Description:
The family of this 74-nucleotide RNA from Epulopiscium sp. Nele67-Bin005 is "tRNA".

RNA sequence: GUAUGCAUAGCUCAGCUGGAUAGAGCGUCUGACUACGGAUCAGAAGGCCGAGGGUUCGAAUCCUUCUGCGUACG
Numbered sequence: 001g002u003a004u005g006c007a008u009a010g011c012u013c014a015g016c017u018g019g020a021u022a023g024a025g026c027g028u029c030u031g032a033c034u035a036c037g038g039a040u041c042a043g044a045a046g047g048c049c050g051a052g053g054g055u056u057c058g059a060a061u062c063c064u065u066c067u068g069c070g071u072a073c074g
Stems, first nucleotide, its partner, number of pairs: 001073007010026004028044005050066005

The family's consensus secondary structure is taken from published work. Rfam's curators write: Transfer RNA (tRNA) molecules are approximately 80 nucleotides in length. Lineage of the source: Bacteria > Bacillota > Lachnospirales > Lachnospiraceae > Candidatus Epulonipiscium.